Annotation:
U5 spliceosomal RNA: a 114-nucleotide sequence from Capsicum baccatum. NCBI's taxonomy places the organism under Eukaryota, Embryophyta, Tracheophyta, asterids, Capsicum.

[Rfam]
RNA sequence: AGCCACGGUGAGCUCAAAGCGAACUAUUUUUUCGUCUUUUACUGAAUAAUAUCGUGUGCUCACAGUAAUUAGUGGCGUACGUCUAUUUUUAGAAGGGUUCUCUUUGUGGAGUUA
Numbered sequence: 001a002g003c004c005a006c007g008g009u010g011a012g013c014u015c016a017a018a019g020c021g022a023a024c025u026a027u028u029u030u031u032u033c034g035u036c037u038u039u040u041a042c043u044g045a046a047u048a049a050u051a052u053c054g055u056g057u058g059c060u061c062a063c064a065g066u067a068a069u070u071a072g073u074g075g076c077g078u079a080c081g082u083c084u085a086u087u088u089u090u091a092g093a094a095g096g097g098u099u100c101u102c103u104u105u106g107u108g109g110a111g112u113u114a
Stems, first nucleotide, its partner, number of pairs: 003075004008063006015056002025051004030046003096113005
Dot-bracket structure: ..((((.((((((.((........((((.(((...........))).))))...)).))))))........))))....................(((((........))))).

Source information:
It scores 57 bits against the family's covariance model.